[Rfam]
RNA: U11 spliceosomal RNA
Organism: Sphaeramia orbicularis
RNA sequence: AAAAAGGGCUUCUGCUGUGUUUUGCACGGGGACAGUGGGGAAAUCCACUUUUCUUGCAGAACUGCAAUCAAGAGAUUUCAGAAGCAUAAUUCUUAAAACAGGGGCUGCUAGUGCUCACUAAUCCAAGCGUCCCG
Numbered sequence: 001a002a003a004a005a006g007g008g009c010u011u012c013u014g015c016u017g018u019g020u021u022u023u024g025c026a027c028g029g030g031g032a033c034a035g036u037g038g039g040g041a042a043a044u045c046c047a048c049u050u051u052u053c054u055u056g057c058a059g060a061a062c063u064g065c066a067a068u069c070a071a072g073a074g075a076u077u078u079c080a081g082a083a084g085c086a087u088a089a090u091u092c093u094u095a096a097a098a099c100a101g102g103g104g105c106u107g108c109u110a111g112u113g114c115u116c117a118c119u120a121a122u123c124c125a126a127g128c129g130u131c132c133c134g
Stems, first nucleotide, its partner, number of pairs: 008085005013026003017022001027056006034049005059078003063074001102132004107128003111124001113123001115121001